[Rfam]
RNA sequence: GGGGAUGUGCUUAGAGUCCCCAGGAUGUGGCGUGUUAAUAGAGGUAUUCUGUGGCCGGAAGCCUUGGUUAGUGAAUC
Numbered sequence: 001g002g003g004g005a006u007g008u009g010c011u012u013a014g015a016g017u018c019c020c021c022a023g024g025a026u027g028u029g030g031c032g033u034g035u036u037a038a039u040a041g042a043g044g045u046a047u048u049c050u051g052u053g054g055c056c057g058g059a060a061g062c063c064u065u066g067g068u069u070a071g072u073g074a075a076u077c
Base pairs, nucleotide, nucleotide: 001021002020003019004018005017006016035071036070037069038068039067041065042064043063044062045061047060048059049058050057
The family of this 77-nucleotide RNA is "L13-Bacteroidia ribosomal protein leader".
Rfam classes the family as a cis-regulatory leader.
The base pairs follow the family's consensus structure, which is taken from published work.